[Rfam]
RNA sequence: GAGAAGAAUCUGUAAAGCUCAGGAGGGAUAGCGCCAUGAUAUAUGAUCACAUCACAUUCACAUCUAUUCUUUGGCGCUGUCCAUCCUGAGUUUCAUUGGCUCUUCUU
Numbered sequence: 001g002a003g004a005a006g007a008a009u010c011u012g013u014a015a016a017g018c019u020c021a022g023g024a025g026g027g028a029u030a031g032c033g034c035c036a037u038g039a040u041a042u043a044u045g046a047u048c049a050c051a052u053c054a055c056a057u058u059c060a061c062a063u064c065u066a067u068u069c070u071u072u073g074g075c076g077c078u079g080u081c082c083a084u085c086c087u088g089a090g091u092u093u094c095a096u097u098g099g100c101u102c103u104u105c106u107u
Stems, first nucleotide, its partner, number of pairs: 010098001016092009026082010
MIR390 microRNA precursor family: a 107-nucleotide RNA from Microthlaspi erraticum. The match comes from Rfam's covariance-model search (102 bits). NCBI's taxonomy places the organism under Eukaryota, Tracheophyta, Mesangiospermae, Gunneridae, Microthlaspi. Rfam 15.1 lists 649 matches to the family in 206 species. Its family is annotated with miRNA-mediated post-transcriptional gene silencing and RISC complex in the Gene Ontology.